[Rfam]
RNA sequence: AGGCAGUGAUGAUCAACUUGAGAAAAGUCAUGCACCACUCUGAUCUUAAUCUGUGCUGAUAAGUUUCUCAACACCCAUUUGUUUUCCAUCUGAGCCU
Numbered sequence: 001a002g003g004c005a006g007u008g009a010u011g012a013u014c015a016a017c018u019u020g021a022g023a024a025a026a027g028u029c030a031u032g033c034a035c036c037a038c039u040c041u042g043a044u045c046u047u048a049a050u051c052u053g054u055g056c057u058g059a060u061a062a063g064u065u066u067c068u069c070a071a072c073a074c075c076c077a078u079u080u081g082u083u084u085u086c087c088a089u090c091u092g093a094g095c096c097u
Stems, first nucleotide, its partner, number of pairs: 001097004